[Rfam]
Source information: Shown here is a 516-nucleotide sequence from Melittangium boletus, a member of the family "Saccharopolyspora sRNA 350". It scores 105 bits against the family's covariance model. The family's consensus secondary structure was predicted with RNAfold. Lineage of the source: Bacteria > Myxococcia > Myxococcales > Melittangium > Melittangium boletus. Its family is annotated with regulation of secondary metabolite biosynthetic process in the Gene Ontology. A reference for the family is Liu et al. (2013), "Prediction and characterization of small non-coding RNAs related to secondary metabolites in Saccharopolyspora erythraea", PLoS One.
RNA sequence: UUGACCGCGAACUUCCAGCGGUCGUCCGACUCCACGACCGCCUGAUCUCCGAAGUGGUCGCCGUCGCCCAGCGAGUCGAGGACGACCGGAUCGCCAUACUUGCCCACGCCCAGCUUCUGGGCCCGGCCAUGGGCGAGCAGGAUGACAUGCUCGGCGGGCUGGCCCACCUCGACGAUGAGGUCUCCGGCCUUGAACUCCUUCUGGACGAACUGCUUCGCCAGGGUGUCGAUCACCGAGUCGGAGUCCUCGUCGUCGAAGCCGCGCAGCAGCGGCAGCUUGCGCAGCUCCUGGGGAAUGACCUGCACCUUGGCUCCCACGUUGCCAAAGCUCAGGCGCGCGUCACCCGCCGUGUAGGUCAGGCGGCGGUUGACGCGAUACACGCCGCCGGGCACCUCCACCCAGGGCAGCAUCCGCAGCAGCCAGCGCGGAGAGAUUCCCUCCAUUUGCGGAUGCGACUUGGUCGUCGUCGUCAACUGACGGGCAGCGGCCGUGUUCAGGCUCGUCUGCUGCUGCUCG
Numbered sequence: 001u002u003g004a005c006c007g008c009g010a011a012c013u014u015c016c017a018g019c020g021g022u023c024g025u026c027c028g029a030c031u032c033c034a035c036g037a038c039c040g041c042c043u044g045a046u047c048u049c050c051g052a053a054g055u056g057g058u059c060g061c062c063g064u065c066g067c068c069c070a071g072c073g074a075g076u077c078g079a080g081g082a083c084g085a086c087c088g089g090a091u092c093g094c095c096a097u098a099c100u101u102g103c104c105c106a107c108g109c110c111c112a113g114c115u116u117c118u119g120g121g122c123c124c125g126g127c128c129a130u131g132g133g134c135g136a137g138c139a140g141g142a143u144g145a146c147a148u149g150c151u152c153g154g155c156g157g158g159c160u161g162g163c164c165c166a167c168c169u170c171g172a173c174g175a176u177g178a179g180g181u182c183u184c185c186g187g188c189c190u191u192g193a194a195c196u197c198c199u200u201c202u203g204g205a206c207g208a209a210c211u212g213c214u215u216c217g218c219c220a221g222g223g224u225g226u227c228g229a230u231c232a233c234c235g236a237g238u239c240g241g242a243g244u245c246c247u248c249g250u251c252g253u254c255g256a257a258g259c260c261g262c263g264c265a266g267c268a269g270c271g272g273c274a275g276c277u278u279g280c281g282c283a284g285c286u287c288c289u290g291g292g293g294a295a296u297g298a299c300c301u302g303c304a305c306c307u308u309g310g311c312u313c314c315c316a317c318g319u320u321g322c323c324a325a326a327g328c329u330c331a332g333g334c335g336c337g338c339g340u341c342a343c344c345c346g347c348c349g350u351g352u353a354g355g356u357c358a359g360g361c362g363g364c365g366g367u368u369g370a371c372g373c374g375a376u377a378c379a380c381g382c383c384g385c386c387g388g389g390c391a392c393c394u395c396c397a398c399c400c401a402g403g404g405c406a407g408c409a410u411c412c413g414c415a416g417c418a419g420c421c422a423g424c425g426c427g428g429a430g431a432g433a434u435u436c437c438c439u440c441c442a443u444u445u446g447c448g449g450a451u452g453c454g455a456c457u458u459g460g461u462c463g464u465c466g467u468c469g470u471c472a473a474c475u476g477a478c479g480g481g482c483a484g485c486g487g488c489c490g491u492g493u494u495c496a497g498g499c500u501c502g503u504c505u506g507c508u509g510c511u512g513c514u515c516g
Stems, first nucleotide, its partner, number of pairs: 007398001009396001011394001014391001016389001018340002021336002025333002028330002031324001037320001039318002049310004054233002057230004062225003066110001068108001075103001077102004082097001084095001086093001117222002120219001122217001126213002130209001132206001134204001136202002139199003144195001152192002157189006165177001168174001243305002246302001249299005259291003263287001265286003269280003341351003361387006372378001401439004406434001408432001410430001412427003416424001446485002449482001451480001453479002456476001457473005486515002489512002495506003